Rfam assigns this 121-nucleotide sequence from Caenorhabditis bovis to the family "Caenorhabditis sRNA ceN56". The match comes from Rfam's covariance-model search (81 bits). It is annotated as a small RNA. A reference for the family is Jia et al. (2007), "Systematic identification of non-coding RNA 2,2,7-trimethylguanosine cap structures in Caenorhabditis elegans", BMC Mol Biol.
[Rfam]
RNA sequence: UGCCCAAUGAGAUAAAAAUGAAUAUGAAGCCUCCCCUCUGGAAAGUCUCGAGAGGUUCCGAUCUUGAGGAAAGACUGACAACAGAGGGGCCUAAUGAUACAGAUUAUGAGAGAUGAGGGCU
Dot-bracket structure: .((((............................((((((....((((((..(((((....)))))..))...))))......))))))...(.(((((....))))))........)))).